About this RNA
This 68-nucleotide sequence from Chauna torquata belongs to the Rfam family "mir-302 microRNA precursor family". It scores 78 bits against the family's covariance model. On this family, see Suh et al., Dev Biol 2004: "Human embryonic stem cells express a unique set of microRNAs".
RNA sequence: CCUCUACUUUAACAUGGAGGUACUUGCUGGACGUUAGAAAAGUAAGUGCUUCCAUGUUUUAGUUGUGG
Numbered sequence: 001c002c003u004c005u006a007c008u009u010u011a012a013c014a015u016g017g018a019g020g021u022a023c024u025u026g027c028u029g030g031a032c033g034u035u036a037g038a039a040a041a042g043u044a045a046g047u048g049c050u051u052c053c054a055u056g057u058u059u060u061a062g063u064u065g066u067g068g
Stems, first nucleotide, its partner, number of pairs: 001068002006063003011058018